[Rfam]
RNA sequence: GCGGGGGAAUGCACGGUCGCGCCCAGGCAACUGGGUGAGGAAAGUCCGGGCACCGCAGGGCAAGGAUGCCAGCUAACGGCUGGUCGGCGAGUCGAGCACCCACACCGGCACCGUAAGGGUGGGCAGCGGCGAAGCCGAAGGACAGUGCCACAGAAACCAGACCGCCGCGCUAUGCGCGUGAGCGCAACGCCCCGGCGCGGGCGGAGGCGCGGUCAGGGUGAAACGGUGCGGUAAGAGCGCACCAGGCCCCCCGGAGACGGGGAGCGCUGGUAAACCCCAUCCGGUGCAAGACCCGACAGUGCGCGAGGGCGGCCCGCCCGUUGACCGCCAGGAUGGUCGCUUGAGGCGGGUGGCGACACCCGUCCCAGAGAGAUGACCGCGCAGCCACGCGAGUGGUGGACAGAACCCGGCUUACAGUUCCCCCGCACCA
Numbered sequence: 001g002c003g004g005g006g007g008a009a010u011g012c013a014c015g016g017u018c019g020c021g022c023c024c025a026g027g028c029a030a031c032u033g034g035g036u037g038a039g040g041a042a043a044g045u046c047c048g049g050g051c052a053c054c055g056c057a058g059g060g061c062a063a064g065g066a067u068g069c070c071a072g073c074u075a076a077c078g079g080c081u082g083g084u085c086g087g088c089g090a091g092u093c094g095a096g097c098a099c100c101c102a103c104a105c106c107g108g109c110a111c112c113g114u115a116a117g118g119g120u121g122g123g124c125a126g127c128g129g130c131g132a133a134g135c136c137g138a139a140g141g142a143c144a145g146u147g148c149c150a151c152a153g154a155a156a157c158c159a160g161a162c163c164g165c166c167g168c169g170c171u172a173u174g175c176g177c178g179u180g181a182g183c184g185c186a187a188c189g190c191c192c193c194g195g196c197g198c199g200g201g202c203g204g205a206g207g208c209g210c211g212g213u214c215a216g217g218g219u220g221a222a223a224c225g226g227u228g229c230g231g232u233a234a235g236a237g238c239g240c241a242c243c244a245g246g247c248c249c250c251c252c253g254g255a256g257a258c259g260g261g262g263a264g265c266g267c268u269g270g271u272a273a274a275c276c277c278c279a280u281c282c283g284g285u286g287c288a289a290g291a292c293c294c295g296a297c298a299g300u301g302c303g304c305g306a307g308g309g310c311g312g313c314c315c316g317c318c319c320g321u322u323g324a325c326c327g328c329c330a331g332g333a334u335g336g337u338c339g340c341u342u343g344a345g346g347c348g349g350g351u352g353g354c355g356a357c358a359c360c361c362g363u364c365c366c367a368g369a370g371a372g373a374u375g376a377c378c379g380c381g382c383a384g385c386c387a388c389g390c391g392a393g394u395g396g397u398g399g400a401c402a403g404a405a406c407c408c409g410g411c412u413u414a415c416a417g418u419u420c421c422c423c424c425g426c427a428c429c430a
Stems, first nucleotide, its partner, number of pairs: 001426010011415001012381001014379005020037007042413003046410005051286004059315002064282005069083005084139001085137004140277002145275002147271003162217002164213008225243006245267001246265002249262005290338004301328003307319004345364008
Dot-bracket structure: ((((((((((((.(((((.(((((((....)))))))....[[[.[[[[[((((....[[...((((((((((.....)))))(((((.............................................)))).)((...(((((............((((((((((..................................))))))))..)).......((((((.......)))))).(((.(((((....))))).)).).)))..)))))))))))))...((((.......(((...((((...]]))))......)))......))))......((((((((....))))))))..........))))).)........................]]]]]]]].).))))))))))....

The family of this 430-nucleotide sequence from Deinococcus sp. Leaf326 is "Bacterial RNase P class A". Ribonuclease P (RNase P) is a ubiquitous endoribonuclease, found in archaea, bacteria and eukarya as well as chloroplasts and mitochondria. The base pairs follow the family's consensus structure, which is taken from published work. The source organism's lineage runs through Bacteria, Thermotogati, Deinococcota, Deinococcaceae and Deinococcus.